[Rfam]
RNA sequence: AAGGCUUUAAGUUAACUAAACUAAUAGCCUUCAAAGCUGUAAAUAAAGGGUAUUCCUUUAAGUCUUA
Numbered sequence: 001a002a003g004g005c006u007u008u009a010a011g012u013u014a015a016c017u018a019a020a021c022u023a024a025u026a027g028c029c030u031u032c033a034a035a036g037c038u039g040u041a042a043a044u045a046a047a048g049g050g051u052a053u054u055c056c057u058u059u060a061a062g063u064c065u066u067a
Stems, first nucleotide, its partner, number of pairs: 001066007010022004024040005045059005

This 67-nucleotide RNA sequence from Drosophila yakuba belongs to the Rfam family "tRNA". Rfam describes the family as follows. Transfer RNA (tRNA) molecules are approximately 80 nucleotides in length. NCBI's taxonomy places the organism under Eukaryota, Pancrustacea, Neoptera, Brachycera, Sophophora. The sequence is in the family's curated seed alignment.